[Rfam]
RNA: DUF805b RNA
Nucleotides: 035
Stems, first nucleotide, its partner, number of pairs: 002021004010034003
Number, partner (000 for none) and nucleotide at each position: 001000a002021a003020g004019g005018c006000a007000g008000c009000a010034a011033c012032c013000g014000a015000a016000a017000a018005g019004c020003c021002u022000g023000a024000a025000c026000a027000g028000a029000g030000u031000a032012g033011g034010u035000a